[Rfam]
RNA sequence: UAGCUCGAGUUUUUCUUUAUCCACGCAUAAAUCUUUCGCCUUUUACUAAAGUUUUCCGUGGAGGGAAACCAUUGCGAGUUUGUCGUAUUUUUGAAUGCUUUGCUCACGGCCAAGCU
Numbered sequence: 001u002a003g004c005u006c007g008a009g010u011u012u013u014u015c016u017u018u019a020u021c022c023a024c025g026c027a028u029a030a031a032u033c034u035u036u037c038g039c040c041u042u043u044u045a046c047u048a049a050a051g052u053u054u055u056c057c058g059u060g061g062a063g064g065g066a067a068a069c070c071a072u073u074g075c076g077a078g079u080u081u082g083u084c085g086u087a088u089u090u091u092u093g094a095a096u097g098c099u100u101u102g103c104u105c106a107c108g109g110c111c112a113a114g115c116u
Stems, first nucleotide, its partner, number of pairs: 003079004009069011029055003033051004095116001097115004102110001
Dot-bracket structure: ..((((..(((((((((((.........(((.((((...........)))).)))...)))))))))))......))))...............(.((((.(.......).)))))
The record is a 116-nucleotide sequence from Triplophysa tibetana, which matches "U5 spliceosomal RNA" in Rfam. The literature on the family includes a 1997 paper in Nucleic Acids Res by Zwieb, "The uRNA database".